[Rfam]
RNA: Purine riboswitch aptamer
Organism: Halalkalibacter oceani
RNA sequence: AUCAAAAGCGAAUAAGAACCUCAUAUAAUCUUGGAAAUAUGGUCCAGAAGUUUCUACCCGAUUGCCGUAAAAAAUCGGACUAUGAGGGAAAGUGACAGAGGC
Numbered sequence: 001a002u003c004a005a006a007a008g009c010g011a012a013u014a015a016g017a018a019c020c021u022c023a024u025a026u027a028a029u030c031u032u033g034g035a036a037a038u039a040u041g042g043u044c045c046a047g048a049a050g051u052u053u054c055u056a057c058c059c060g061a062u063u064g065c066c067g068u069a070a071a072a073a074a075u076c077g078g079a080c081u082a083u084g085a086g087g088g089a090a091a092g093u094g095a096c097a098g099a100g101g102c
Stems, first nucleotide, its partner, number of pairs: 019087007029049001031047005058078006